Notes
The family of this 34-nucleotide RNA from Cnephaeus nilssonii is "Iron response element I". Lineage of the source: Eukaryota > Bilateria > Dipnotetrapodomorpha > Vespertilionidae > Cnephaeus. The base pairs follow the family's consensus structure, which is taken from published work. The match comes from Rfam's covariance-model search (34 bits). By type it is a cis-regulatory element. Its family is annotated with response to iron ion in the Gene Ontology.
[Rfam]
RNA sequence: GUGUCUCUGCUUCUACAGUGUUUGGACAGGACGC
Numbered sequence: 001g002u003g004u005c006u007c008u009g010c011u012u013c014u015a016c017a018g019u020g021u022u023u024g025g026a027c028a029g030g031a032c033g034c
Base pairs, nucleotide, nucleotide: 001034002033003032004031006030007029009027011026012025013024015022016020